mir-9242 microRNA precursor family: a 63-nucleotide sequence from Myotis brandtii.

[Rfam]
RNA sequence: GGCUUCCCUCUGUGGGGUGAUCGAUUAUGGGCCCCCAGAUCGAUUGCCCCACAGAGGGAGGCC
Numbered sequence: 001g002g003c004u005u006c007c008c009u010c011u012g013u014g015g016g017g018u019g020a021u022c023g024a025u026u027a028u029g030g031g032c033c034c035c036c037a038g039a040u041c042g043a044u045u046g047c048c049c050c051a052c053a054g055a056g057g058g059a060g061g062c063c
Stems, first nucleotide, its partner, number of pairs: 001063026029035002
The base pairs follow the family's consensus structure, which was predicted with RNAalifold. The family has 2 seed sequences and 940 matches in Rfam 15.1. NCBI's taxonomy places the organism under Eukaryota, Teleostomi, Euteleostomi, Amniota, Myotis.